[Rfam]
RNA sequence: GUCCGUGUGGCUCAAUGGAAGAGCAUCUGACUACGGAUCAGAGGGUUGCAGGUUCGAAUCCUGUCACGGAUG
Numbered sequence: 001g002u003c004c005g006u007g008u009g010g011c012u013c014a015a016u017g018g019a020a021g022a023g024c025a026u027c028u029g030a031c032u033a034c035g036g037a038u039c040a041g042a043g044g045g046u047u048g049c050a051g052g053u054u055c056g057a058a059u060c061c062u063g064u065c066a067c068g069g070a071u072g
Base pairs, nucleotide, nucleotide: 001071002070003069004068005067006066007065010024011023012022013021026042027041028040029039030038048064049063050062051061052060
Source information:
Shown here is a 72-nucleotide RNA from Trypanosoma brucei, a member of the family "tRNA". Rfam links the family to the GO term triplet codon-amino acid adaptor activity. Pairs were carried over by alignment from the consensus structure, which is taken from published work. The family's RNA type in Rfam is transfer RNA. Lineage of the source: Eukaryota > Kinetoplastea > Metakinetoplastina > Trypanosomatidae > Trypanosoma brucei.